RNA sequence: AUAAAAGUAAUGAGAGGAAAUAGUAGCAGGUUAUUUUCUUCAAGAGAGUCGGUGGUUGGUGUGAACCGAUAGAAAAAACUGUGAAUCCAUCCUUGAACUGGUUUACCGAAUAUACAGUAAGUAGACCCGGAGCAUGCCGUUAUGAUGUCAGAGUAGGAAGUCUAUAUGUAGGACUUCAAUUUGGGUGGUAUCGCGGGAAUAUAAACUCUCGUCCCUUUC
Numbered sequence: 001a002u003a004a005a006a007g008u009a010a011u012g013a014g015a016g017g018a019a020a021u022a023g024u025a026g027c028a029g030g031u032u033a034u035u036u037u038c039u040u041c042a043a044g045a046g047a048g049u050c051g052g053u054g055g056u057u058g059g060u061g062u063g064a065a066c067c068g069a070u071a072g073a074a075a076a077a078a079c080u081g082u083g084a085a086u087c088c089a090u091c092c093u094u095g096a097a098c099u100g101g102u103u104u105a106c107c108g109a110a111u112a113u114a115c116a117g118u119a120a121g122u123a124g125a126c127c128c129g130g131a132g133c134a135u136g137c138c139g140u141u142a143u144g145a146u147g148u149c150a151g152a153g154u155a156g157g158a159a160g161u162c163u164a165u166a167u168g169u170a171g172g173a174c175u176u177c178a179a180u181u182u183g184g185g186u187g188g189u190a191u192c193g194c195g196g197g198a199a200u201a202u203a204a205a206c207u208c209u210c211g212u213c214c215c216u217u218u219c
Stems, first nucleotide, its partner, number of pairs: 007098002015093004026082004031077001037073003048070006101126006128139003157177007183215003193212005
The family of this 219-nucleotide RNA from Cerasibacillus quisquiliarum is "T-box leader". It scores 150 bits against the family's covariance model. The family's consensus secondary structure is taken from published work. The organism belongs to Cerasibacillus, within Bacteria. Uncharged tRNA acts as the effector for transcription antitermination of genes in the T-box leader family. Rfam links the family to the GO term tRNA binding.